[Rfam]
Record summary
Shown here is a 122-nucleotide RNA sequence from Hypnocyclicus thermotrophus, a member of the family "FMN riboswitch aptamer (RFN element)". Lineage of the source: Bacteria > Fusobacteriota > Fusobacteriia > Fusobacteriales > Hypnocyclicus.
RNA sequence: AAAAAACUUCGGGGCAGGGUGAAACUCCCGACCGGCGGUGAUAGUCCGCGAGCUAUAUUUAUAUAGCAGGAACUGGUGAAAUUCCAGUACCGACAGUAAAGUCUGGAUGAGAGAAGUAAAGU
Numbered sequence: 001a002a003a004a005a006a007c008u009u010c011g012g013g014g015c016a017g018g019g020u021g022a023a024a025c026u027c028c029c030g031a032c033c034g035g036c037g038g039u040g041a042u043a044g045u046c047c048g049c050g051a052g053c054u055a056u057a058u059u060u061a062u063a064u065a066g067c068a069g070g071a072a073c074u075g076g077u078g079a080a081a082u083u084c085c086a087g088u089a090c091c092g093a094c095a096g097u098a099a100a101g102u103c104u105g106g107a108u109g110a111g112a113g114a115a116g117u118a119a120a121g122u
Stems, first nucleotide, its partner, number of pairs: 006117005017029003031102002033092002035049004044090002052067003072088005094105003